[Rfam]
RNA: Small nucleolar RNA SNORD94
RNA sequence: CAAACGAUGACGAGACGCGCAGGGGUACGGACCUCAGCUGAUCAUGGGAGCUGAGUGUUGGCGCUGGUUCUCAGCUCAGUGGGCGUGUGGUCCACUGACUGGGUGGCGCUGACAUGAUAAAGACGCCUGACUGAGUUUU
Numbered sequence: 001c002a003a004a005c006g007a008u009g010a011c012g013a014g015a016c017g018c019g020c021a022g023g024g025g026u027a028c029g030g031a032c033c034u035c036a037g038c039u040g041a042u043c044a045u046g047g048g049a050g051c052u053g054a055g056u057g058u059u060g061g062c063g064c065u066g067g068u069u070c071u072c073a074g075c076u077c078a079g080u081g082g083g084c085g086u087g088u089g090g091u092c093c094a095c096u097g098a099c100u101g102g103g104u105g106g107c108g109c110u111g112a113c114a115u116g117a118u119a120a121a122g123a124c125g126c127c128u129g130a131c132u133g134a135g136u137u138u139u
Stems, first nucleotide, its partner, number of pairs: 002138004